[Rfam]
RNA sequence: CGAGUCAGCCGGGCGGCCGCGUCAGGCGCGUCGCGAGGCGCGACCUGCCGAGGAACGUCCGGGCUCCGCAGGGCGGGGUGGUGGGCAACACCCACCCGGGGCGACCCGCGGGACAGUGCCACAGAGAACAGACCGCCUCGCGACCUCCUCCGGGAGGUCGUGCGGCAAGGGUGAAACGGUGGUGCAAGAGACCACCAGCACCCCCGGUGACGGGGGUGGCUCGGCAAACCCCACCCGGAGCAAGGCCAGACAGGGAGCGCUCGAGGGCUGCCCGCCCGAGCUCCCGGGUAGGCCGCUACGGCGGCCGGACCACGGGCGCGAGCCCGGGGCCCGGCCGCGCGAGGACGUCGGCGACGGCGUCCCGAGAUGGAUGGCCGCCACCCGCGGCCGGGCGACCGGCCGCGGGGACAGGACCCGGCGUACAGGCUGACUCGUCCG
Numbered sequence: 001c002g003a004g005u006c007a008g009c010c011g012g013g014c015g016g017c018c019g020c021g022u023c024a025g026g027c028g029c030g031u032c033g034c035g036a037g038g039c040g041c042g043a044c045c046u047g048c049c050g051a052g053g054a055a056c057g058u059c060c061g062g063g064c065u066c067c068g069c070a071g072g073g074c075g076g077g078g079u080g081g082u083g084g085g086c087a088a089c090a091c092c093c094a095c096c097c098g099g100g101g102c103g104a105c106c107c108g109c110g111g112g113a114c115a116g117u118g119c120c121a122c123a124g125a126g127a128a129c130a131g132a133c134c135g136c137c138u139c140g141c142g143a144c145c146u147c148c149u150c151c152g153g154g155a156g157g158u159c160g161u162g163c164g165g166c167a168a169g170g171g172u173g174a175a176a177c178g179g180u181g182g183u184g185c186a187a188g189a190g191a192c193c194a195c196c197a198g199c200a201c202c203c204c205c206g207g208u209g210a211c212g213g214g215g216g217u218g219g220c221u222c223g224g225c226a227a228a229c230c231c232c233a234c235c236c237g238g239a240g241c242a243a244g245g246c247c248a249g250a251c252a253g254g255g256a257g258c259g260c261u262c263g264a265g266g267g268c269u270g271c272c273c274g275c276c277c278g279a280g281c282u283c284c285c286g287g288g289u290a291g292g293c294c295g296c297u298a299c300g301g302c303g304g305c306c307g308g309a310c311c312a313c314g315g316g317c318g319c320g321a322g323c324c325c326g327g328g329g330c331c332c333g334g335c336c337g338c339g340c341g342a343g344g345a346c347g348u349c350g351g352c353g354a355c356g357g358c359g360u361c362c363c364g365a366g367a368u369g370g371a372u373g374g375c376c377g378c379c380a381c382c383c384g385c386g387g388c389c390g391g392g393c394g395a396c397c398g399g400c401c402g403c404g405g406g407g408a409c410a411g412g413a414c415c416c417g418g419c420g421u422a423c424a425g426g427c428u429g430a431c432u433c434g435u436c437c438g
Base pairs, nucleotide, nucleotide: 001434002433003432004431005430006429007428008427009426010425011423012379013378014377015376016375017374018373020050021049023047024046025045026044055421056420057419059418060417061416062415063414064240065239066238067237076236077235078234079233080232081095082094083093084092085091096110097108098107099106100105111231112230116229117228118225119224120223133170134169135166136165137164139162140161141160142159143158144157145156146155147154148153178196179195180194181193182192183191198220199218200217201216202215203214204213205212206211244336245335246334247333343362344361345360346359347358348357349356350355
Dot-bracket structure: ((((((((((((((((((.((.((((.................)))).))....[[[.[[[[[((((........((((((((((.....)))))(((((....)))).)((...(((((............(((((.((((((((((....)))))))))).)))..)).......((((((.......)))))).(((((((((....)))))))).)..)))..)))))))))))))...((((.....................................................................................))))......((((((((....))))))))..........)))))))..................................]]]]]]]].).))))))))))....